ASpks TB sRNA: a 69-nucleotide RNA from Streptomyces spongiae. The literature on the family includes a 2009 paper in Mol Microbiol by Arnvig and Young, "Identification of small RNAs in Mycobacterium tuberculosis". Lineage of the source: Bacteria > Bacillati > Actinomycetota > Streptomycetaceae > Streptomyces. The family's consensus secondary structure is taken from published work.
RNA sequence: CUUGACCGAGCCGAGCCACAGCGGUUCCGCGCGGUCCUGGCCGUAGGUGGCGAGCAGGGCCUGCGCCUC
Numbered sequence: 001c002u003u004g005a006c007c008g009a010g011c012c013g014a015g016c017c018a019c020a021g022c023g024g025u026u027c028c029g030c031g032c033g034g035u036c037c038u039g040g041c042c043g044u045a046g047g048u049g050g051c052g053a054g055c056a057g058g059g060c061c062u063g064c065g066c067c068u069c
Stems, first nucleotide, its partner, number of pairs: 014026004028065003032059001037054002041050003
Dot-bracket structure: .............((((.....)))).(((.(....((..(((....)))..))....)...)))....